[Rfam]
Nucleotides: 440
Base pairs, nucleotide, nucleotide: 002440003439004438005437006436007435008433009432010431011430014392015391016390017389018388019387023080024078025077026076027075028074029073039062040061041060042059043058044057045056046055047054048053085424086423088422089421090420091419112123113122114121115120314329315328316327317326318325319324331363332362336358394409395408396407397406398405399404
Number, partner (000 for none) and nucleotide at each position: 001000u002440c003439c004438u005437c006436g007435u008433u009432c010431a011430a012000a013000a014392a015391a016390u017389c018388g019387c020000u021000a022000u023080u024078c025077g026076g027075a028074g029073c030000u031000c032000a033000c034000a035000c036000a037000c038000a039062g040061a041060g042059a043058c044057g045056c046055u047054g048053c049000u050000c051000c052000g053048g054047c055046a056045g057044c058043g059042u060041c061040u062039c063000c064000c065000u066000c067000c068000c069000c070000a071000u072000u073029g074028c075027u076026c077025u078024g079000g080023g081000a082000g083000a084000a085424a086423g087000u088422c089421c090420c091419c092000g093000g094000a095000c096000g097000u098000c099000u100000c101000u102000u103000u104000a105000c106000u107000g108000a109000g110000a111000a112123u113122g114121c115120g116000g117000a118000a119000a120115c121114g122113c123112g124000c125000c126000g127000c128000c129000a130000u131000a132000a133000a134000a135000g136000c137000a138000c139000a140000g141000c142000g143000g144000c145000u146000g147000a148000c149000c150000u151000c152000c153000g154000c155000g156000c157000c158000c159000a160000g161000g162000c163000c164000c165000u166000c167000u168000c169000c170000u171000u172000g173000u174000g175000c176000c177000g178000g179000c180000c181000c182000u183000g184000u185000c186000c187000a188000c189000c190000g191000u192000u193000a194000u195000a196000u197000c198000c199000u200000c201000g202000c203000a204000a205000c206000c207000a208000a209000c210000c211000c212000a213000g214000c215000c216000u217000c218000g219000a220000a221000g222000g223000u224000u225000c226000u227000g228000c229000u230000c231000g232000g233000u234000c235000c236000c237000c238000u239000g240000g241000c242000c243000c244000u245000c246000a247000u248000g249000g250000a251000u252000g253000a254000a255000g256000a257000u258000a259000u260000g261000a262000g263000u264000c265000c266000g267000a268000g269000u270000c271000a272000g273000u274000g275000g276000g277000a278000u279000u280000g281000g282000c283000g284000g285000u286000u287000c288000c289000u290000u291000c292000g293000a294000a295000c296000u297000g298000g299000u300000g301000c302000g303000c304000g305000c306000g307000u308000g309000a310000g311000g312000g313000g314329a315328g316327g317326u318325g319324g320000g321000c322000a323000g324319c325318c326317g327316c328315c329314u330000g331363g332362u333000g334000c335000c336358u337000g338000c339000g340000a341000g342000u343000g344000u345000g346000g347000u348000g349000u350000c351000g352000g353000g354000u355000g356000c357000a358336g359000a360000g361000g362332a363331c364000u365000u366000g367000u368000u369000g370000u371000c372000g373000a374000g375000g376000u377000u378000g379000a380000u381000a382000g383000g384000u385000a386000u387019g388018c389017g390016a391015u392014u393000g394409c395408c396407c397406g398405g399404c400000g401000a402000a403000a404399g405398c406397u407396g408395g409394g410000u411000u412000a413000c414000u415000c416000a417000a418000u419091g420090g421089g422088g423086c424085u425000c426000a427000u428000u429000c430011u431010u432009g433008a434000u435007g436006c437005g438004a439003g440002g